[Rfam]
RNA sequence: GUGUUGAAAGUGAGAAUUAGAGAGAACCAAACCUUGUUUUCAUGACAACCAUAAACAAUGGGUUUGGUUUUCUCUAAUGUCUCACAUUCAUCAC
Numbered sequence: 001g002u003g004u005u006g007a008a009a010g011u012g013a014g015a016a017u018u019a020g021a022g023a024g025a026a027c028c029a030a031a032c033c034u035u036g037u038u039u040u041c042a043u044g045a046c047a048a049c050c051a052u053a054a055a056c057a058a059u060g061g062g063u064u065u066g067g068u069u070u071u072c073u074c075u076a077a078u079g080u081c082u083c084a085c086a087u088u089c090a091u092c093a094c
Base pairs, nucleotide, nucleotide: 005090006089007088008087011084012083013082014081016078017077018076019075020074021073023071024070025069026068027067028066029065030064032062033061
MIR2275 microRNA precursor family: a 94-nucleotide RNA from Dioscorea zingiberensis.
The base pairs follow the family's consensus structure, which was predicted with RNAalifold.
Rfam 15.1 lists 785 matches to the family in 111 species.
The source organism's lineage runs through Eukaryota, Streptophyta, Tracheophyta, Petrosaviidae and Dioscorea.